[Rfam]
RNA sequence: GUCGAGCUUAGUAACGCAAGCUUGUAACCCAAGUGGGGGCAUUGAGGUGUUGGAACAUUGGUUCAGCGUUAGCUGUCCGGGUCUGGAGUGGCUCUAUUCCGGCCUGCCCAUUCCAAGCUAGGAGUUGAGUUGUGUGGCUUGAGCGAAGGCUCUAGGCUACACGAUUUCUAGAGCGGAGGGGAACCGCGUAAGGCUGGUUUCACAGAGCAACGAUUACCUCCCGCUCUUGGCAGUGGAAGGAUAACGGGUCGGUGCCAUCCCGAUCCAUCAUGGAUAGUUGGGCUGCCCCAAUUGAACCAACGCUUUU
Numbered sequence: 001g002u003c004g005a006g007c008u009u010a011g012u013a014a015c016g017c018a019a020g021c022u023u024g025u026a027a028c029c030c031a032a033g034u035g036g037g038g039g040c041a042u043u044g045a046g047g048u049g050u051u052g053g054a055a056c057a058u059u060g061g062u063u064c065a066g067c068g069u070u071a072g073c074u075g076u077c078c079g080g081g082u083c084u085g086g087a088g089u090g091g092c093u094c095u096a097u098u099c100c101g102g103c104c105u106g107c108c109c110a111u112u113c114c115a116a117g118c119u120a121g122g123a124g125u126u127g128a129g130u131u132g133u134g135u136g137g138c139u140u141g142a143g144c145g146a147a148g149g150c151u152c153u154a155g156g157c158u159a160c161a162c163g164a165u166u167u168c169u170a171g172a173g174c175g176g177a178g179g180g181g182a183a184c185c186g187c188g189u190a191a192g193g194c195u196g197g198u199u200u201c202a203c204a205g206a207g208c209a210a211c212g213a214u215u216a217c218c219u220c221c222c223g224c225u226c227u228u229g230g231c232a233g234u235g236g237a238a239g240g241a242u243a244a245c246g247g248g249u250c251g252g253u254g255c256c257a258u259c260c261c262g263a264u265c266c267a268u269c270a271u272g273g274a275u276a277g278u279u280g281g282g283c284u285g286c287c288c289c290a291a292u293u294g295a296a297c298c299a300a301c302g303c304u305u306u307u
Base pairs, nucleotide, nucleotide: 001040002039003038004023005022006021007020008019009018028037029036030035044306045305046304047303048302049301050300051299052298053297056294057293058291059290060289064285065284066283067282069281070280071279072278073277074276075275076274077273078272079266080265081264082263083262085260086259087258089257090256091255093254099252100251101250102249103248104247105246106245108240109239111238112237113236114235115234117231118230119229120228121227122226123225124224125223127167128166129165130164131163132162133161134160135159136158137157138156139155140154141153142151143150144149168173175221176220177219178218179217187212188211189210194205195204196203
RNA: Plant signal recognition particle RNA